[Rfam]
RNA sequence: CUUCACCGAACCGAGCCACAGCGGCCGGCCGGCGGGCCGGUCCUGGCCGUACGUCGCCAGGAGCGCCUGCGCCUC
Numbered sequence: 001c002u003u004c005a006c007c008g009a010a011c012c013g014a015g016c017c018a019c020a021g022c023g024g025c026c027g028g029c030c031g032g033c034g035g036g037c038c039g040g041u042c043c044u045g046g047c048c049g050u051a052c053g054u055c056g057c058c059a060g061g062a063g064c065g066c067c068u069g070c071g072c073c074u075c
Base pairs, nucleotide, nucleotide: 015025016024017023032070033069038065039064043060044059045058047056049054
This 75-nucleotide RNA sequence from Streptomyces mashuensis belongs to the Rfam family "ASpks TB sRNA". The organism belongs to Streptomyces, within Bacteria. The base pairs follow the family's consensus structure, which is taken from published work.